This 381-nucleotide sequence from Thauera aromatica belongs to the Rfam family "Bacterial RNase P class A". The base pairs follow the family's consensus structure, which is taken from published work. Taxonomically the source falls in Thauera aromatica (Bacteria, Betaproteobacteria, Rhodocyclales, Zoogloeaceae).
[Rfam]
RNA sequence: GAAGUUCGCCAGGCAGUCGCUGCGCACGUCGUGCGUGGAGGAAAGUCCGGGCCCCGCAGAGCAGGAUGCCGGCUAACGGCCGGGCGCCGUGAGGCGACGGAAAGUGCAACAGAGAACAGACCGCCGAUGGCUUCCGCAAGGAAGAUCAGGCAAGGGUGAAACGGUGGGGUAAGAGCCCACCGCAGGACUGGCAACAGGACUGGCACGGCAAACCCCAUCCGGGGCAAGGCCAAAUAGGGGAGCAUCGGCGUGGCUCGCGCCGCUCCCGGGUAGGCUGCUAGAGCGCCGCGGCAACGCGGCGCCCAGAGGAAUGACUGCCCGAUGCUGCCGGCUCGCGCCGGCGGCGUUCGACAGAACCCGGCUUAUCGGCGAACUUCCCCC
Number, nucleotide and partner (000 for none) at each position: 001g377002a376003a375004g374005u373006u372007c371008g370009c369010c368011a366012g319013g318014c317015a316016g315017u314018c313019g000020c038021u037022g036023c035024g034025c033026a032027c031028g000029u000030c000031g027032u026033g025034c024035g023036u022037g021038g020039a000040g000041g000042a000043a364044a363045g362046u000047c361048c360049g359050g358051g357052c224053c223054c222055c221056g000057c000058a000059g256060a255061g254062c253063a000064g220065g219066a218067u217068g216069c083070c082071g081072g080073c079074u000075a000076a000077c000078g000079g073080c072081c071082g070083g069084g098085c096086g095087c094088c093089g000090u000091g000092a000093g088094g087095c086096g085097a000098c084099g215100g214101a000102a000103a000104g213105u212106g209107c208108a000109a000110c000111a000112g000113a000114g000115a000116a000117c000118a000119g000120a000121c155122c154123g151124c150125c149126g000127a000128u148129g147130g146131c000132u144133u143134c000135c000136g000137c000138a000139a000140g000141g000142a000143a133144g132145a000146u130147c129148a128149g125150g124151c123152a000153a000154g122155g121156g000157u000158g000159a000160a000161a000162c000163g181164g180165u179166g178167g177168g176169g000170u000171a000172a000173g000174a000175g000176c168177c167178c166179a165180c164181c163182g204183c202184a201185g200186g000187a000188c197189u196190g195191g000192c000193a000194a000195c190196a189197g188198g000199a000200c185201u184202g183203g000204c182205a000206c000207g000208g107209c106210a000211a000212a105213c104214c100215c099216c068217a067218u066219c065220c064221g055222g054223g053224g052225c000226a000227a000228g276229g275230c274231c273232a000233a000234a000235u000236a000237g000238g267239g266240g265241a264242g263243c262244a000245u000246c000247g261248g260249c259250g258251u257252g000253g062254c061255u060256c059257g251258c250259g249260c248261c247262g243263c242264u241265c240266c239267c238268g000269g000270g000271u000272a000273g231274g230275c229276u228277g000278c000279u000280a000281g000282a000283g302284c301285g300286c299287c298288g297289c296290g295291g000292c000293a000294a000295c290296g289297c288298g287299g286300c285301g284302c283303c000304c000305a000306g000307a000308g000309g000310a000311a000312u000313g018314a017315c016316u015317g014318c013319c012320c000321g000322a000323u000324g000325c000326u000327g000328c000329c000330g000331g000332c000333u000334c000335g000336c000337g000338c000339c000340g000341g000342c000343g000344g000345c000346g000347u000348u000349c000350g000351a000352c000353a000354g000355a000356a000357c051358c050359c049360g048361g047362c045363u044364u043365a000366u011367c000368g010369g009370c008371g007372a006373a005374c004375u003376u002377c001378c000379c000380c000381c000